RNA sequence: UUAUUUUUACUUUCGGUUAUCUAGCUUUAUGAAGGAUUGAUAACACUCAUACAGCUAGAUAACCAAAGAUAACAAUUA
Numbered sequence: 001u002u003a004u005u006u007u008u009a010c011u012u013u014c015g016g017u018u019a020u021c022u023a024g025c026u027u028u029a030u031g032a033a034g035g036a037u038u039g040a041u042a043a044c045a046c047u048c049a050u051a052c053a054g055c056u057a058g059a060u061a062a063c064c065a066a067a068g069a070u071a072a073c074a075a076u077u078a
Base pairs, nucleotide, nucleotide: 001078003076004075005074007072008071009070011068012067013066015064016063017062018061019060020059021058022057023056024055025054026053028051029050030049031048032047
Annotation: A member of the RNA family "mir-9/mir-79 microRNA precursor family" from Hymenochirus boettgeri, 78 nucleotides long. The source organism's lineage runs through Eukaryota, Metazoa, Dipnotetrapodomorpha, Anura and Hymenochirus.